The record is a 131-nucleotide RNA sequence from Enhydra lutris, which matches "Small nucleolar RNA SNORA9" in Rfam. The match comes from Rfam's covariance-model search (104 bits). ACA9 is a member of the H/ACA class of snoRNA that guide the sites of modification of uridines to pseudouridines.

RNA sequence: CUGUAAGCCCUCAGCAUGCUUGGGUCUGCGGUGCUCUUGUGCAUUCCUGCAUGUUUGAAAGAACAUUUUGAAAUGGUUUGAGGCCUUUCCCUGUUGCACUCAGAGCAAGGUUACAGAAAUUUCAAACAGUU
Numbered sequence: 001c002u003g004u005a006a007g008c009c010c011u012c013a014g015c016a017u018g019c020u021u022g023g024g025u026c027u028g029c030g031g032u033g034c035u036c037u038u039g040u041g042c043a044u045u046c047c048u049g050c051a052u053g054u055u056u057g058a059a060a061g062a063a064c065a066u067u068u069u070g071a072a073a074u075g076g077u078u079u080g081a082g083g084c085c086u087u088u089c090c091c092u093g094u095u096g097c098a099c100u101c102a103g104a105g106c107a108a109g110g111u112u113a114c115a116g117a118a119a120u121u122u123c124a125a126a127c128a129g130u131u
Base pairs, nucleotide, nucleotide: 004057005056006055007054008053017043018042019041022037023036024035026033069124070123071122072121073120084110085109086108087107089105091103092102093101